Rfam assigns this 73-nucleotide RNA sequence from Actinoplanes awajinensis to the family "tRNA". Pairs were carried over by alignment from the consensus structure, which is taken from published work. It is annotated as a transfer RNA. Transfer RNA (tRNA) molecules are approximately 80 nucleotides in length. Their secondary structure includes four short double-helical elements and three loops (D, anti-codon, and T loops). Further hydrogen bonds mediate the characteristic L-shaped molecular structure. tRNAs have two regions of fundamental functional importance: the anti-codon, which is responsible for specific mRNA codon recognition, and the 3' end, to which the tRNAs corresponding amino acid is attached (by aminoacyl-tRNA synthetases). tRNAs cope with the degeneracy of the genetic code in two manners: having more than one tRNA (with a specific anti-codon) for a particular amino acid; and 'wobble' base-pairing, i.e. permitting non-standard base-pairing at the 3rd anti-codon position.
[Rfam]
RNA sequence: GGGGCCCUAGCUCAAUUGGCAGAGCACCGCCUUUGCAAGGCGGGGGUUAGGGGUUCGAUUCCCCUGGGCUCCA
Numbered sequence: 001g002g003g004g005c006c007c008u009a010g011c012u013c014a015a016u017u018g019g020c021a022g023a024g025c026a027c028c029g030c031c032u033u034u035g036c037a038a039g040g041c042g043g044g045g046g047u048u049a050g051g052g053g054u055u056c057g058a059u060u061c062c063c064c065u066g067g068g069c070u071c072c073a
Stems, first nucleotide, its partner, number of pairs: 001072007010025004027043005049065005